[Rfam]
RNA: Bacterial RNase P class A
Organism: Demequina lutea
RNA sequence: UGAGUUGGCCAGGCGGCCGCGUUGCGGGGAGACCCGUGCCGAGGAACGUCCGGGCUCCGUAGAGCAGGGUGAUGGUUAAUAGCCACCCGGGGUGACCCGCGGGAAAGUGCCACAGAAAAUAACCGCCUCCGGCCUCGGCCGGCGGUAAGGGUGAAAAGGUGAGGUAAGAGCUCACCGCGUCGCUGGUGACAGCGACGGUCACGGUAAACCCCACCCGGAGCAAGACCAGACAGGAUGCGUUUGAGGGCUGCUCGCCCGAGUAUCUGGGUAGGUUGCUAGAGGCGUGCGGCAACGUACGUCGUAGAUGGAUGGCCGCCCGUCUUCUUCGGAAGACGACAGAACCCGGCGUAUCGGCCAACUCAUCCG
Numbered sequence: 001u002g003a004g005u006u007g008g009c010c011a012g013g014c015g016g017c018c019g020c021g022u023u024g025c026g027g028g029g030a031g032a033c034c035c036g037u038g039c040c041g042a043g044g045a046a047c048g049u050c051c052g053g054g055c056u057c058c059g060u061a062g063a064g065c066a067g068g069g070u071g072a073u074g075g076u077u078a079a080u081a082g083c084c085a086c087c088c089g090g091g092g093u094g095a096c097c098c099g100c101g102g103g104a105a106a107g108u109g110c111c112a113c114a115g116a117a118a119a120u121a122a123c124c125g126c127c128u129c130c131g132g133c134c135u136c137g138g139c140c141g142g143c144g145g146u147a148a149g150g151g152u153g154a155a156a157a158g159g160u161g162a163g164g165u166a167a168g169a170g171c172u173c174a175c176c177g178c179g180u181c182g183c184u185g186g187u188g189a190c191a192g193c194g195a196c197g198g199u200c201a202c203g204g205u206a207a208a209c210c211c212c213a214c215c216c217g218g219a220g221c222a223a224g225a226c227c228a229g230a231c232a233g234g235a236u237g238c239g240u241u242u243g244a245g246g247g248c249u250g251c252u253c254g255c256c257c258g259a260g261u262a263u264c265u266g267g268g269u270a271g272g273u274u275g276c277u278a279g280a281g282g283c284g285u286g287c288g289g290c291a292a293c294g295u296a297c298g299u300c301g302u303a304g305a306u307g308g309a310u311g312g313c314c315g316c317c318c319g320u321c322u323u324c325u326u327c328g329g330a331a332g333a334c335g336a337c338a339g340a341a342c343c344c345g346g347c348g349u350a351u352c353g354g355c356c357a358a359c360u361c362a363u364c365c366g
Stems, first nucleotide, its partner, number of pairs: 001362010011351001012317007020041002023038006046349003050346005055220004062253004067216005073085004087101001088099004102211002107209002109205003123150002125146003129142005158176006177200001178197008224274004233265006245257004281300008